[Rfam]
RNA sequence: ACCUGCGCCGGUUGCCCGGUCGCAAAUCCAGCCGCUUCCAGCCAGUUACCCUUGAGGUGCAAACUGGGGUACUGGCUAUAAUAGCGGGUCAUGCCAGUAUUGCGAUCAGCGUGGCGGGUACUG
Numbered sequence: 001a002c003c004u005g006c007g008c009c010g011g012u013u014g015c016c017c018g019g020u021c022g023c024a025a026a027u028c029c030a031g032c033c034g035c036u037u038c039c040a041g042c043c044a045g046u047u048a049c050c051c052u053u054g055a056g057g058u059g060c061a062a063a064c065u066g067g068g069g070u071a072c073u074g075g076c077u078a079u080a081a082u083a084g085c086g087g088g089u090c091a092u093g094c095c096a097g098u099a100u101u102g103c104g105a106u107c108a109g110c111g112u113g114g115c116g117g118g119u120a121c122u123g
Stems, first nucleotide, its partner, number of pairs: 023074002026070004043066004047059004101116003
This 123-nucleotide RNA sequence from Xenorhabdus innexi belongs to the Rfam family "isrA Hfq binding RNA". The match comes from Rfam's covariance-model search (60 bits). The literature on the family includes a 2008 paper in Nucleic Acids Res by Padalon-Brauch et al., "Small RNAs encoded within genetic islands of Salmonella typhimurium show host-induced expression and role in virulence".